[Rfam]
RNA sequence: CGCGUAUUUUGCGCAGGCGGAACUCGACCGCCCACUGAAGCGAUGAUCGCCUUCAUUGAUGAUCGGCGCGUUGUUUACGGUGUCGAGUCAAUCUGCAGAGUGCUGCCGAUUGCGCCG
Numbered sequence: 001c002g003c004g005u006a007u008u009u010u011g012c013g014c015a016g017g018c019g020g021a022a023c024u025c026g027a028c029c030g031c032c033c034a035c036u037g038a039a040g041c042g043a044u045g046a047u048c049g050c051c052u053u054c055a056u057u058g059a060u061g062a063u064c065g066g067c068g069c070g071u072u073g074u075u076u077a078c079g080g081u082g083u084c085g086a087g088u089c090a091a092u093c094u095g096c097a098g099a100g101u102g103c104u105g106c107c108g109a110u111u112g113c114g115c116c117g
Base pairs, nucleotide, nucleotide: 016032017031018030019029020028078117079116080115081114082113089112090111092109093108095106096105097104098103

ALIL pseudoknot: a 117-nucleotide sequence from Paracoccus sp. R12_2.
NCBI's taxonomy places the organism under Bacteria, Pseudomonadota, Alphaproteobacteria, Rhodobacterales, Paracoccus.
A search with the family's covariance model found it, with a score of 112 bits.